The family of this 64-nucleotide RNA sequence from Cnephaeus nilssonii is "mir-9242 microRNA precursor family".

[Rfam]
RNA sequence: GGCCUCCCUCUUUGGGGCGAUUGAUCGCAGGGCUCUGCCAUCAAUCGCCCCAAACAGGUAGGCC
Numbered sequence: 001g002g003c004c005u006c007c008c009u010c011u012u013u014g015g016g017g018c019g020a021u022u023g024a025u026c027g028c029a030g031g032g033c034u035c036u037g038c039c040a041u042c043a044a045u046c047g048c049c050c051c052a053a054a055c056a057g058g059u060a061g062g063c064c
Stems, first nucleotide, its partner, number of pairs: 001064005007058003011054015027038004

A search with the family's covariance model found it, with a score of 64 bits.